[Rfam]
RNA sequence: CUUCCGAGCACCUGCAUUGUACACACUGUGUGUGUGCUCUGGAAAUGCACAGCGCAUACAAUGUGGAUUCUGGGGAA
Dot-bracket structure: ...........((.(((((((..(.((((((...............)))))).)..))))))).))...........
RNA: mir-460 microRNA precursor family